[Rfam]
RNA sequence: UGGGUCGACUGGACGGUCGCGUUGCGGGUGGUUUCCGCUCGUACCGAGGAACGUCCGGGCUCCAUAGGGCAGGGCGGUGGGUAACACCCACCCGGAGCAAUCCGCGAGACAGUGCCACAGAGAGCAGACCGCCAGGACGCGAGUCCCGGUAAGGGUGAAAGGGUGGUGUAAGAGACCACCGGGUUCGCGGUGACGCGAACCGCACGGCAAACCUCGCCCGGAGCAAGGCCAGACAGGGGAUGCAGACGCUGCCCGCCGAGUCCCCGGGUAGGCCGCUAGAACGGCAUGGCAACGUGUCGUCGAGAGAGAUGACCGUCCACGAAGCGCGAGCUUCCGGACAGAACCCGGCGUACAGGUCGACCCAUUCG
Numbered sequence: 001u002g003g004g005u006c007g008a009c010u011g012g013a014c015g016g017u018c019g020c021g022u023u024g025c026g027g028g029u030g031g032u033u034u035c036c037g038c039u040c041g042u043a044c045c046g047a048g049g050a051a052c053g054u055c056c057g058g059g060c061u062c063c064a065u066a067g068g069g070c071a072g073g074g075c076g077g078u079g080g081g082u083a084a085c086a087c088c089c090a091c092c093c094g095g096a097g098c099a100a101u102c103c104g105c106g107a108g109a110c111a112g113u114g115c116c117a118c119a120g121a122g123a124g125c126a127g128a129c130c131g132c133c134a135g136g137a138c139g140c141g142a143g144u145c146c147c148g149g150u151a152a153g154g155g156u157g158a159a160a161g162g163g164u165g166g167u168g169u170a171a172g173a174g175a176c177c178a179c180c181g182g183g184u185u186c187g188c189g190g191u192g193a194c195g196c197g198a199a200c201c202g203c204a205c206g207g208c209a210a211a212c213c214u215c216g217c218c219c220g221g222a223g224c225a226a227g228g229c230c231a232g233a234c235a236g237g238g239g240a241u242g243c244a245g246a247c248g249c250u251g252c253c254c255g256c257c258g259a260g261u262c263c264c265c266g267g268g269u270a271g272g273c274c275g276c277u278a279g280a281a282c283g284g285c286a287u288g289g290c291a292a293c294g295u296g297u298c299g300u301c302g303a304g305a306g307a308g309a310u311g312a313c314c315g316u317c318c319a320c321g322a323a324g325c326g327c328g329a330g331c332u333u334c335c336g337g338a339c340a341g342a343a344c345c346c347g348g349c350g351u352a353c354a355g356g357u358c359g360a361c362c363c364a365u366u367c368g
Base pairs, nucleotide, nucleotide: 001364002363003362004361005360006359007358008357009356010355011353012317013316014315015314016313017312018311020046021045023043024042025041026040027039028038051351052350053349055348056347057346058345059344060223061222062221063220067254068253069252070251072219073218074217075216076215077091078090079089080088081087092106093104094103095102096101107214108213112212113211114208115207116206129154130153131150132149133148135146136145137144138143162180163179164178165177166176167175181203182201183200184199185198186197187196188195189194227274228273229272230271236265237264238263239262240261241260248256249255281300282299283298284297285296286295287294288293
This 368-nucleotide RNA from Microbacterium sp. SLBN-146 belongs to the Rfam family "Bacterial RNase P class A".
Rfam links the family to the GO terms ribonuclease P activity, dimeric ribonuclease P complex and tRNA processing.